[Rfam]
RNA sequence: UGGUGGAAUUUUGGUAGGCCUCUGGCCUUUGCCCACCAGAGGUGAUAUAAAAAAAAAAAAAAAAAAAAUAUAUCACCUCUGGUGGGCAAAGGCCAGAGGCCUACUACAAUUC
Numbered sequence: 001u002g003g004u005g006g007a008a009u010u011u012u013g014g015u016a017g018g019c020c021u022c023u024g025g026c027c028u029u030u031g032c033c034c035a036c037c038a039g040a041g042g043u044g045a046u047a048u049a050a051a052a053a054a055a056a057a058a059a060a061a062a063a064a065a066a067a068a069u070a071u072a073u074c075a076c077c078u079c080u081g082g083u084g085g086g087c088a089a090a091g092g093c094c095a096g097a098g099g100c101c102u103a104c105u106a107c108a109a110u111u112c
Stems, first nucleotide, its partner, number of pairs: 016102007024094014040078001042076008

Notes:
This 112-nucleotide sequence from Armadillidium nasatum belongs to the Rfam family "mir-36 microRNA precursor family". A reference for the family is Ohler et al. (2004), "Patterns of flanking sequence conservation and a characteristic upstream motif for microRNA gene identification", RNA. Its family is annotated with RISC complex and miRNA-mediated post-transcriptional gene silencing in the Gene Ontology. It scores 50 bits against the family's covariance model. The family is grouped with related families in Rfam's "mir-36 clan". The organism belongs to Armadillidium, within Eukaryota.